[Rfam]
RNA sequence: GGUCAUGAGUCUCAGCGUCAAGCCCCGGCUUGCUGAGCGGCAACCCUCCUCCGCGGUGGGGUGCUCCGGGUGACGACCGGGCCGACCUACGCCCGUGGGCCGGCAAGCGCGGAUC
Numbered sequence: 001g002g003u004c005a006u007g008a009g010u011c012u013c014a015g016c017g018u019c020a021a022g023c024c025c026c027g028g029c030u031u032g033c034u035g036a037g038c039g040g041c042a043a044c045c046c047u048c049c050u051c052c053g054c055g056g057u058g059g060g061g062u063g064c065u066c067c068g069g070g071u072g073a074c075g076a077c078c079g080g081g082c083c084g085a086c087c088u089a090c091g092c093c094c095g096u097g098g099g100c101c102g103g104c105a106a107g108c109g110c111g112g113a114u115c
Stems, first nucleotide, its partner, number of pairs: 001078004009038001011037006021030002039065003044061003048056002081104004086099005
This 115-nucleotide RNA sequence from Metallococcus carri belongs to the Rfam family "SAM (S-adenosyl methionine) riboswitch aptamer". NCBI's taxonomy places the organism under Bacteria, Actinomycetota, Micrococcales, Dermacoccaceae, Metallococcus.